[Rfam]
RNA sequence: UGGACUUCCCUUUGUCAUCCUAUGCCUGAGAAUAUAUGAAGGAGGCUGGGAAGGCAAAGGGACGUUCA
Dot-bracket structure: ......((((((.((..(((((.((((...............)))))))))..)).))))))......
Numbered sequence: 001u002g003g004a005c006u007u008c009c010c011u012u013u014g015u016c017a018u019c020c021u022a023u024g025c026c027u028g029a030g031a032a033u034a035u036a037u038g039a040a041g042g043a044g045g046c047u048g049g050g051a052a053g054g055c056a057a058a059g060g061g062a063c064g065u066u067c068a
Stems, first nucleotide, its partner, number of pairs: 007062006014055002018051005024046004

A member of the RNA family "mir-204 microRNA precursor family" from Mus musculus, 68 nucleotides long. The organism belongs to Mus, within Eukaryota. Rfam's curators put it in the seed alignment.